[Rfam]
Nucleotides: 109
Stems, first nucleotide, its partner, number of pairs: 001109008013043005021032003028079002044073004049069002051065004077101001082098006
Number, partner (000 for none) and nucleotide at each position: 001109u002108u003107c004106u005105u006104a007103u008102c009000a010000a011000g012000a013043g014042a015041a016040g017039c018000a019000g020000a021032g022031g023030g024000a025000c026000a027000u028079g029078g030023c031022c032021c033000u034000g035000u036000g037000a038000a039017g040016c041015u042014u043013c044073a045072g046071c047070a048000a049069c050068c051065u052064c053063u054062g055000a056000c057000a058000u059000u060000g061000u062054c063053a064052g065051a066000a067000a068050g069049g070047u071046g072045c073044u074000a075000a076000c077101u078029c079028c080000u081000a082098c083097a084096a085095g086094a087093u088000u089000u090000u091000u092000g093087a094086u095085c096084u097083u098082g099000a100000g101077a102008g103007a104006u105005a106004a107003g108002a109001a
Description:
Shown here is a 109-nucleotide RNA from Psychrobacillus soli, a member of the family "SAM riboswitch aptamer (S box leader)". A search with the family's covariance model found it, with a score of 105 bits.